[Rfam]
RNA sequence: UAUGGUCAGUCGGUAGGUGAAGCUACCGCAUGGACACGGCCUGCUGCCGCAAAAUGGUGGAGACACCCUGCGCAGGUCAACAGUCCCCGUCGGAUCAAGGCUGGGACUAAUGCAGAGCCAAAUGCCAUGCGAAGCCGAAGCUUGAACGAUGACGACCCAG
Numbered sequence: 001u002a003u004g005g006u007c008a009g010u011c012g013g014u015a016g017g018u019g020a021a022g023c024u025a026c027c028g029c030a031u032g033g034a035c036a037c038g039g040c041c042u043g044c045u046g047c048c049g050c051a052a053a054a055u056g057g058u059g060g061a062g063a064c065a066c067c068c069u070g071c072g073c074a075g076g077u078c079a080a081c082a083g084u085c086c087c088c089g090u091c092g093g094a095u096c097a098a099g100g101c102u103g104g105g106a107c108u109a110a111u112g113c114a115g116a117g118c119c120a121a122a123u124g125c126c127a128u129g130c131g132a133a134g135c136c137g138a139a140g141c142u143u144g145a146a147c148g149a150u151g152a153c154g155a156c157c158c159a160g
Stems, first nucleotide, its partner, number of pairs: 005156003009153003012147001014098001016142003022135002027131007041115004047075001049073002056067004083107004089101003